[Rfam]
RNA sequence: AUUGUCACUGCUGUUCCAAGGGCACACGCAGAGGGAUUUGGAAUUCCUGGAGAGUUGCCUUUGUGAGAAGCUGGAAAUAUUUCUUUCAAUUCCAUCUCUUAGUUUUCCAUAGGAACAUCAAGAAAUC
Numbered sequence: 001a002u003u004g005u006c007a008c009u010g011c012u013g014u015u016c017c018a019a020g021g022g023c024a025c026a027c028g029c030a031g032a033g034g035g036a037u038u039u040g041g042a043a044u045u046c047c048u049g050g051a052g053a054g055u056u057g058c059c060u061u062u063g064u065g066a067g068a069a070g071c072u073g074g075a076a077a078u079a080u081u082u083c084u085u086u087c088a089a090u091u092c093c094a095u096c097u098c099u100u101a102g103u104u105u106u107c108c109a110u111a112g113g114a115a116c117a118u119c120a121a122g123a124a125a126u127c
Base pairs, nucleotide, nucleotide: 005075006074010071011070012069014067015066016065017063018062019061020060021059022058023057024056026055027054033048034047035046036045079126080125081124082123083122084121085120090115091114092113093112

The family of this 127-nucleotide RNA sequence is "ODC internal ribosome entry site (IRES)". Rfam's curators put it in the seed alignment. On this family, see Pyronnet et al., Cell Mol Life Sci 2005: "Alternative splicing facilitates internal ribosome entry on the ornithine decarboxylase mRNA". The family's consensus secondary structure was predicted with mfold.